Small nucleolar RNA SNORD116: a 92-nucleotide RNA sequence from Tursiops truncatus. A search with the family's covariance model found it, with a score of 94 bits. Lineage of the source: Eukaryota > Amniota > Artiodactyla > Delphinidae > Tursiops. Rfam 15.1 lists 3,260 matches to the family in 170 species.
[Rfam]
Nucleotides: 092
Base pairs, nucleotide, nucleotide: 001092002091003090004089005088026055027054028053029052030051033046034045
Number, partner (000 for none) and nucleotide at each position: 001092g002091g003090a004089u005088c006000a007000a008000u009000g010000a011000u012000g013000a014000c015000u016000c017000c018000c019000a020000u021000a022000a023000a024000u025000g026055c027054a028053u029052u030051c031000c032000c033046u034045g035000g036000a037000a038000a039000u040000c041000u042000g043000a044000a045034c046033a047000a048000a049000a050000u051030g052029a053028g054027u055026g056000a057000g058000c059000a060000a061000u062000c063000u064000c065000u066000a067000c068000u069000g070000u071000c072000u073000c074000c075000u076000c077000a078000u079000u080000g081000g082000a083000a084000c085000u086000g087000a088005g089004g090003u091002c092001c